[Rfam]
RNA sequence: UGAAUACCGUAACUCCGAGCAAAAGCAUCUAAGGUCAUGCGCUAUGAUGCUGCGCCUGGGUAAUACCCACAGGGGAGCACAGGAAACCGCGCUCCCUUCCGUUUUGAAAAGGAGGAAAAUAACGGAUGAA
Dot-bracket structure: ............((((..((...((((((...(((.....)))..))))))..)).(((((...)))))..(((((((.(.(....).).)))))))((......))...))))................
RNA: Molybdenum/Tungsten riboswitch aptamer (Moco RNA motif)